[Rfam]
RNA: Pseudomonas sRNA P26
Organism: Enterovibrio coralii
RNA sequence: UAGCUUAGCUUCUUAGCCUUAAUUGGCUAAUGGCUGGUGGCUUUUUAGCCACCGGCCU
Numbered sequence: 001u002a003g004c005u006u007a008g009c010u011u012c013u014u015a016g017c018c019u020u021a022a023u024u025g026g027c028u029a030a031u032g033g034c035u036g037g038u039g040g041c042u043u044u045u046u047a048g049c050c051a052c053c054g055g056c057c058u
Stems, first nucleotide, its partner, number of pairs: 014029005032057010